[Rfam]
RNA sequence: AUUUGUCGUCUGCUUUCUUGAAAUCUUGUCCAAGAAAGCUUACAGCAGUUAAAUCA
Numbered sequence: 001a002u003u004u005g006u007c008g009u010c011u012g013c014u015u016u017c018u019u020g021a022a023a024u025c026u027u028g029u030c031c032a033a034g035a036a037a038g039c040u041u042a043c044a045g046c047a048g049u050u051a052a053a054u055c056a
Base pairs, nucleotide, nucleotide: 008043009042012039013038014037015036016035018033019032020031